[Rfam]
RNA: MIR1858 microRNA precursor family
Organism: Xenopus tropicalis
RNA sequence: AGCCAUCAAAGCAGCCAGACAGGUGGGGGGCCACACAGAGGGGGGUCGCGGGCCGCAUGCGGCCCGCGGGCCGCCAGUUGGACAGCACUGGUGUAGAGGAACAAGACAUGGAUGCCCUCUAUCCCCUACUAUUUAAUGCUUCUAUGGAACUGCUUAAUACAGUGCUGUCCAACUGGCGGCCCGCGGGCCGCAUGCGGCCCGCGACCCCCCUCUGUGUGGCCCCCCACCUGUCUGGCUGCUUUGAUGGC
Numbered sequence: 001a002g003c004c005a006u007c008a009a010a011g012c013a014g015c016c017a018g019a020c021a022g023g024u025g026g027g028g029g030g031c032c033a034c035a036c037a038g039a040g041g042g043g044g045g046u047c048g049c050g051g052g053c054c055g056c057a058u059g060c061g062g063c064c065c066g067c068g069g070g071c072c073g074c075c076a077g078u079u080g081g082a083c084a085g086c087a088c089u090g091g092u093g094u095a096g097a098g099g100a101a102c103a104a105g106a107c108a109u110g111g112a113u114g115c116c117c118u119c120u121a122u123c124c125c126c127u128a129c130u131a132u133u134u135a136a137u138g139c140u141u142c143u144a145u146g147g148a149a150c151u152g153c154u155u156a157a158u159a160c161a162g163u164g165c166u167g168u169c170c171a172a173c174u175g176g177c178g179g180c181c182c183g184c185g186g187g188c189c190g191c192a193u194g195c196g197g198c199c200c201g202c203g204a205c206c207c208c209c210c211u212c213u214g215u216g217u218g219g220c221c222c223c224c225c226a227c228c229u230g231u232c233u234g235g236c237u238g239c240u241u242u243g244a245u246g247g248c
Stems, first nucleotide, its partner, number of pairs: 003247005009241011023227034058192018077173011089162001091160003094156002
Dot-bracket structure: ..(((((.(((((((((((...((((((((((((((((((((((((((((((((((.((((((((((((((((((.(((((((((((.(.(((((...........................................................)).))).)))))))))))).)))))))))))))))))).))))))))))))))))))))))))))))))))))...))))))))))).))))).